[Rfam]
RNA sequence: UUAUGCCCAUGGUAUCUAAUGUCCAGAAUUGUAUUGGGUUUCUGGGCAUUUCGUUUCAGGGCAGAGAUUAAACUCAGAAACAGGCCUUGCGACACAGAUAGCUUCACAUUUAUAUAAGCUUUCUGUUACUAUAAUCCUGCUUACAAAC
Numbered sequence: 001u002u003a004u005g006c007c008c009a010u011g012g013u014a015u016c017u018a019a020u021g022u023c024c025a026g027a028a029u030u031g032u033a034u035u036g037g038g039u040u041u042c043u044g045g046g047c048a049u050u051u052c053g054u055u056u057c058a059g060g061g062c063a064g065a066g067a068u069u070a071a072a073c074u075c076a077g078a079a080a081c082a083g084g085c086c087u088u089g090c091g092a093c094a095c096a097g098a099u100a101g102c103u104u105c106a107c108a109u110u111u112a113u114a115u116a117a118g119c120u121u122u123c124u125g126u127u128a129c130u131a132u133a134a135u136c137c138u139g140c141u142u143a144c145a146a147a148c
Stems, first nucleotide, its partner, number of pairs: 004063005018050011030037001079141001081139003094126005100120004
A member of the RNA family "Small nucleolar RNA F1/F2/snoR5a" from Striga asiatica, 148 nucleotides long. Pairs were carried over by alignment from the consensus structure, which was predicted with PFOLD. From the family's description: This family contains F1, F2 and snoR5a sequences, all of which are members of the the H/ACA class of snoRNA that guide the sites of modification of uridines to pseudouridines. A search with the family's covariance model found it, with a score of 67 bits. Rfam classes the family as an H/ACA-box small nucleolar RNA. Rfam 15.1 lists 325 matches to the family in 97 species.